[Rfam]
RNA: Vault RNA
RNA sequence: GGACUACCUUUAGCUUGGCAGUGUCUUCAAAUCAAGCCACUUCACUUGUACCACUCUUGCUUGUGAGGGUGGCUUGAGAUCCAUGGGUGCCCUGUAGUCCUUUA
Numbered sequence: 001g002g003a004c005u006a007c008c009u010u011u012a013g014c015u016u017g018g019c020a021g022u023g024u025c026u027u028c029a030a031a032u033c034a035a036g037c038c039a040c041u042u043c044a045c046u047u048g049u050a051c052c053a054c055u056c057u058u059g060c061u062u063g064u065g066a067g068g069g070u071g072g073c074u075u076g077a078g079a080u081c082c083a084u085g086g087g088u089g090c091c092c093u094g095u096a097g098u099c100c101u102u103u104a
Base pairs, nucleotide, nucleotide: 002099003098004097005096006095007094013088014087015086016085018084021081026078027077028076029075030074